[Rfam]
This 103-nucleotide RNA sequence from Kordia algicida belongs to the Rfam family "SAM riboswitch aptamer (S box leader)". Its family is annotated with regulation of gene expression in the Gene Ontology. NCBI's taxonomy places the organism under Bacteria, Pseudomonadati, Flavobacteriia, Flavobacteriales, Kordia algicida.

RNA sequence: UCGUUAUCAAGAAAGGCUGAGGGAAUAGACCCGAUGAAGCCUUAGCAACCCUUUACACAUAAAGAAGGUGCUACAUUCUACUGCGCAAGCGGAUAGAUAACAA
Numbered sequence: 001u002c003g004u005u006a007u008c009a010a011g012a013a014a015g016g017c018u019g020a021g022g023g024a025a026u027a028g029a030c031c032c033g034a035u036g037a038a039g040c041c042u043u044a045g046c047a048a049c050c051c052u053u054u055a056c057a058c059a060u061a062a063a064g065a066a067g068g069u070g071c072u073a074c075a076u077u078c079u080a081c082u083g084c085g086c087a088a089g090c091g092g093a094u095a096g097a098u099a100a101c102a103a
Base pairs, nucleotide, nucleotide: 001103003101004100005099006098007097008096013043014042015041016040017039021032022031023030026080027079028078029077044072045071046070047069049068050067051064052063053062054061076095081092082091083090084089